RNA sequence: UAAAGAGAGUUUGCGUUUGUCUUAGUUGGUAUGCAUUUAAAAUUAUCAUAAGACACACGCGGCUAUUUUCA
Numbered sequence: 001u002a003a004a005g006a007g008a009g010u011u012u013g014c015g016u017u018u019g020u021c022u023u024a025g026u027u028g029g030u031a032u033g034c035a036u037u038u039a040a041a042a043u044u045a046u047c048a049u050a051a052g053a054c055a056c057a058c059g060c061g062g063c064u065a066u067u068u069u070c071a
Base pairs, nucleotide, nucleotide: 001071003069004068005067006066008064009063010062011061013060014059015058018055019054022052023051027048028047029046030045031044
A member of the RNA family "mir-970 microRNA precursor family" from Culex quinquefasciatus, 71 nucleotides long. The family has 11 seed sequences and 75 matches in Rfam 15.1. The source organism's lineage runs through Eukaryota, Opisthokonta, Pterygota, Culicinae and Culex pipiens complex. It is one of the family's seed sequences.